[Rfam]
RNA sequence: GAAGCCCGCCAGACCGCCGCUGGUGCAAUCUGGGAAACCAGGCACUGGAGGAACGUCCGGACUGCAUAGGGCAGCGUAGCAGGUAACACCUGUCCACCGUGAGGUGAGGAUCAGAGCAACAGAGACGAGCCGAUUGAGUUCGGGUGAAACGGGCAAUCUCUACGCGCAGCAAUACCAAGUAGGCCAGUGUUGAUGUGGCUCCGCAGAGCUGGCGGGUAGGUAGCACCGAGCUGAUCGGCGACGAUCAGCCAAGAGUAAUGGCGGUCACGCUUGCACCUUCGAAAGAAGAUGCAAGCGACACAAAAUCCGGCUUAUCGGCGGACUUCACAC
Numbered sequence: 001g002a003a004g005c006c007c008g009c010c011a012g013a014c015c016g017c018c019g020c021u022g023g024u025g026c027a028a029u030c031u032g033g034g035a036a037a038c039c040a041g042g043c044a045c046u047g048g049a050g051g052a053a054c055g056u057c058c059g060g061a062c063u064g065c066a067u068a069g070g071g072c073a074g075c076g077u078a079g080c081a082g083g084u085a086a087c088a089c090c091u092g093u094c095c096a097c098c099g100u101g102a103g104g105u106g107a108g109g110a111u112c113a114g115a116g117c118a119a120c121a122g123a124g125a126c127g128a129g130c131c132g133a134u135u136g137a138g139u140u141c142g143g144g145u146g147a148a149a150c151g152g153g154c155a156a157u158c159u160c161u162a163c164g165c166g167c168a169g170c171a172a173u174a175c176c177a178a179g180u181a182g183g184c185c186a187g188u189g190u191u192g193a194u195g196u197g198g199c200u201c202c203g204c205a206g207a208g209c210u211g212g213c214g215g216g217u218a219g220g221u222a223g224c225a226c227c228g229a230g231c232u233g234a235u236c237g238g239c240g241a242c243g244a245u246c247a248g249c250c251a252a253g254a255g256u257a258a259u260g261g262c263g264g265u266c267a268c269g270c271u272u273g274c275a276c277c278u279u280c281g282a283a284a285g286a287a288g289a290u291g292c293a294a295g296c297g298a299c300a301c302a303a304a305a306u307c308c309g310g311c312u313u314a315u316c317g318g319c320g321g322a323c324u325u326c327a328c329a330c
Base pairs, nucleotide, nucleotide: 001326002325003324004323006321007320008319009318010317011315012266013265014264015263016262017261018260020048021047022046023045024044025043026042053313055311057310058309059308060307061306062169063168064167065166069201070200071199072198074165075164076163077162078161079093080092081091082090083089094108095106096105097104098103109160110159114158115157116154117153130143131142132141133140173222174221175220176219183213184212185211186210187209188208194205195204196203197202230249231248232247233246234245235244236243237242
Annotation: This 330-nucleotide RNA from Caenimonas koreensis belongs to the Rfam family "Bacterial RNase P class A". The family's RNA type in Rfam is ribozyme. A search with the family's covariance model found it, with a score of 210 bits.